Overview:
Rfam assigns this 93-nucleotide RNA sequence from Lactuca saligna to the family "Small nucleolar RNA snoR27". The literature on the family includes a 2001 paper in RNA by Brown et al., "Multiple snoRNA gene clusters from Arabidopsis". Pairs were carried over by alignment from the consensus structure, which was predicted with WAR. It scores 69 bits against the family's covariance model. The source organism's lineage runs through Eukaryota, eudicotyledons, Gunneridae, Lactucinae and Lactuca.
[Rfam]
RNA sequence: GUUGGAUCGAUGAUGCUUACAAAGAAACUGCGUUAUCUAUCUGUAAAUUCCUUAAUUGGAUCUGAUGAUAGUUUAAACUUCGUGAGAUUCUUC
Numbered sequence: 001g002u003u004g005g006a007u008c009g010a011u012g013a014u015g016c017u018u019a020c021a022a023a024g025a026a027a028c029u030g031c032g033u034u035a036u037c038u039a040u041c042u043g044u045a046a047a048u049u050c051c052u053u054a055a056u057u058g059g060a061u062c063u064g065a066u067g068a069u070a071g072u073u074u075a076a077a078c079u080u081c082g083u084g085a086g087a088u089u090c091u092u093c
Base pairs, nucleotide, nucleotide: 001093004090005089006088007087